[Rfam]
The record is a 102-nucleotide sequence from Alkalibacter saccharofermentans, which matches "Purine riboswitch aptamer" in Rfam. Taxonomically the source falls in Alkalibacter saccharofermentans (Bacteria, Clostridia, Eubacteriales, Alkalibacter). A search with the family's covariance model found it, with a score of 79 bits.

RNA sequence: AUAAACCAAUCGCAGCUAUCUUAUAUAAAAUCAGGGAUAUGGCCUGGAAGUCUCUACCGAAAAACCGUAAAUUUUUCGACUAUAAGCUAGGGUAUUUCACAA
Numbered sequence: 001a002u003a004a005a006c007c008a009a010u011c012g013c014a015g016c017u018a019u020c021u022u023a024u025a026u027a028a029a030a031u032c033a034g035g036g037a038u039a040u041g042g043c044c045u046g047g048a049a050g051u052c053u054c055u056a057c058c059g060a061a062a063a064a065c066c067g068u069a070a071a072u073u074u075u076u077c078g079a080c081u082a083u084a085a086g087c088u089a090g091g092g093u094a095u096u097u098c099a100c101a102a
Stems, first nucleotide, its partner, number of pairs: 018088001020086006031047005058078007